Nucleotides: 193
Base pairs, nucleotide, nucleotide: 007025008024009023010021011020012019013018046065047064048063049062050061051060067081068080069079070078071077072076112145113144114143115142116141117140118139119138126133127132148186149185150184151183152182153181155178156177157176158175160173
Number, partner (000 for none) and nucleotide at each position: 001000a002000u003000c004000c005000a006000u007025u008024c009023a010021a011020g012019c013018c014000u015000u016000u017000u018013g019012g020011c021010u022000u023009u024008g025007a026000u027000c028000a029000u030000g031000u032000g033000u034000a035000g036000u037000a038000u039000c040000u041000g042000u043000u044000c045000u046065u047064u048063g049062u050061a051060g052000u053000u054000u055000g056000a057000c058000g059000a060051c061050u062049a063048c064047a065046a066000u067081g068080g069079a070078g071077u072076c073000c074000u075000a076072g077071a078070u079069u080068c081067c082000u083000u084000u085000a086000u087000c088000g089000u090000c091000a092000u093000u094000a095000c096000u097000a098000u099000u100000u101000u102000u103000g104000a105000c106000u107000a108000c109000u110000c111000a112145g113144g114143g115142a116141g117140g118139g119138a120000g121000g122000u123000u124000c125000c126133u127132g128000c129000u130000u131000g132127c133126a134000c135000a136000c137000c138119u139118u140117c141116u142115u143114c144113c145112c146000a147000c148186g149185g150184g151183u152182g153181u154000c155178c156177c157176c158175g159000a160173c161000c162000c163000u164000g165000c166000a167000c168000u169000u170000a171000c172000c173160g174000c175158c176157g177156g178155g179000u180000g181153a182152c183151g184150c185149c186148c187000a188000u189000u190000c191000c192000a193000a
The record is a 193-nucleotide RNA sequence from Tieghemiomyces parasiticus, which matches "U2 spliceosomal RNA" in Rfam. NCBI's taxonomy places the organism under Eukaryota, Fungi, Kickxellomycotina, Dimargaritales, Tieghemiomyces. Its family is annotated with pre-mRNA branch point binding, U2 snRNP and mRNA branch site recognition in the Gene Ontology. Pairs were carried over by alignment from the consensus structure, which is taken from published work. The family's RNA type in Rfam is spliceosomal small nuclear RNA. U2 is a small nuclear RNA (snRNA) component of the spliceosome (involved in pre-mRNA splicing). Complementary binding between U2 snRNA (in an area lying towards the 5' end but 3' to hairpin I) and the branchpoint sequence (BPS) of the intron results the bulging out of an unpaired adenosine, on the BPS, which initiates a nucleophilic attack at the intronic 5' splice site, thus starting the first of two transesterification reactions that mediate splicing.